The record is a 600-nucleotide part of an RNA from Coniochaeta ligniaria, which matches "Eukaryotic small subunit ribosomal RNA" in Rfam. NCBI's taxonomy places the organism under Eukaryota, Opisthokonta, Dikarya, Ascomycota, Coniochaeta ligniaria. The literature on the family includes a 2001 paper in Science by Yusupov et al., "Crystal structure of the ribosome at 5.5 A resolution". Pairs were carried over by alignment from the consensus structure, which is taken from published work.

[Rfam]
RNA sequence: UACUUAGUUAAUUCUACUAGUAGUUAUAUAUUUAUCUCAAAGAUUAAGCUAUAUAUAUUUAAAUAUAAGUAAUUAUAUUACGAAAUUGUAAAUAGCUUAUUAAAUUAGUUAUCGUUUAUUUAAUAGUACUUUAUUAUUUAGAUAACUAUAGUAAUUCUAAAGCUAAUAUAUAUUAAAAAUCUCGAUUUUAGAAGAGAUGUAUUUAUUAGAUUAAAAACUAAUACCUUUCGAGGCUUUUUAGUGAUUUAUAAUAAUUUUUCGAAUCGUAUAGCUUUACAUUAGCGAUAGUUUAUUCAAAUUUCUACUUUAUUAACUUUCGACGGUUAAAUCUUAGUUAGUUAUAGUAAUAACGGGUAAUAAAGGGUUAAGGUUCGACUUCGGAGAAAGAGUUUAAGAAACGGCUACUAUAUUUAAAGAAGGUAGUAGGCGUAUAAAUUACUUAAUUUCGACUUAAGGAAGUAGUAAUAAUAAAUACUAAUAUAAGGCUCUUUUAGGUUUUAUAAUUAGAAUAAGUAUAAUUUAAAUCUUUUAAUAAAGAAUAAUUAGAGAAUAAGUUUAGUAUUAGUAGCCAUAGUAAUUUUAACUCUAAUAACGUAUAUU
Numbered sequence: 001u002a003c004u005u006a007g008u009u010a011a012u013u014c015u016a017c018u019a020g021u022a023g024u025u026a027u028a029u030a031u032u033u034a035u036c037u038c039a040a041a042g043a044u045u046a047a048g049c050u051a052u053a054u055a056u057a058u059u060u061a062a063a064u065a066u067a068a069g070u071a072a073u074u075a076u077a078u079u080a081c082g083a084a085a086u087u088g089u090a091a092a093u094a095g096c097u098u099a100u101u102a103a104a105u106u107a108g109u110u111a112u113c114g115u116u117u118a119u120u121u122a123a124u125a126g127u128a129c130u131u132u133a134u135u136a137u138u139u140a141g142a143u144a145a146c147u148a149u150a151g152u153a154a155u156u157c158u159a160a161a162g163c164u165a166a167u168a169u170a171u172a173u174u175a176a177a178a179a180u181c182u183c184g185a186u187u188u189u190a191g192a193a194g195a196g197a198u199g200u201a202u203u204u205a206u207u208a209g210a211u212u213a214a215a216a217a218c219u220a221a222u223a224c225c226u227u228u229c230g231a232g233g234c235u236u237u238u239u240a241g242u243g244a245u246u247u248a249u250a251a252u253a254a255u256u257u258u259u260c261g262a263a264u265c266g267u268a269u270a271g272c273u274u275u276a277c278a279u280u281a282g283c284g285a286u287a288g289u290u291u292a293u294u295c296a297a298a299u300u301u302c303u304a305c306u307u308u309a310u311u312a313a314c315u316u317u318c319g320a321c322g323g324u325u326a327a328a329u330c331u332u333a334g335u336u337a338g339u340u341a342u343a344g345u346a347a348u349a350a351c352g353g354g355u356a357a358u359a360a361a362g363g364g365u366u367a368a369g370g371u372u373c374g375a376c377u378u379c380g381g382a383g384a385a386a387g388a389g390u391u392u393a394a395g396a397a398a399c400g401g402c403u404a405c406u407a408u409a410u411u412u413a414a415a416g417a418a419g420g421u422a423g424u425a426g427g428c429g430u431a432u433a434a435a436u437u438a439c440u441u442a443a444u445u446u447c448g449a450c451u452u453a454a455g456g457a458a459g460u461a462g463u464a465a466u467a468a469u470a471a472a473u474a475c476u477a478a479u480a481u482a483a484g485g486c487u488c489u490u491u492u493a494g495g496u497u498u499u500a501u502a503a504u505u506a507g508a509a510u511a512a513g514u515a516u517a518a519u520u521u522a523a524a525u526c527u528u529u530u531a532a533u534a535a536a537g538a539a540u541a542a543u544u545a546g547a548g549a550a551u552a553a554g555u556u557u558a559g560u561a562u563u564a565g566u567a568g569c570c571a572u573a574g575u576a577a578u579u580u581u582a583a584c585u586c587u588a589a590u591a592a593c594g595u596a597u598a599u600u
Base pairs, nucleotide, nucleotide: 004020005019006018007017008016022600023599024598026597027596028595029594031592032591035470037468039466041463042430048428049427050426052425053424054423057089058088062087063086064085069081070080096383097382098381106304107303108302111299112298115297116296121292122291123290137172139170140169146162147161149159150158151157179198180197181196182195183194186191203254204253205252206251207250208249217242218241219240220239224233225232226231264285265284266283267282269281270280271279306354307353308352313345314344315343320342322340323339324338325337326336327335358380360378361377362373363372364371365370385406388403389402390401408419410417411416436461438460439459440458444456445455446454448452476506477505478504479502480501481500482499483498484497485496486495487494513533514532515530517529518528543589544588545587546586547585548584556583557582558581559580565572566571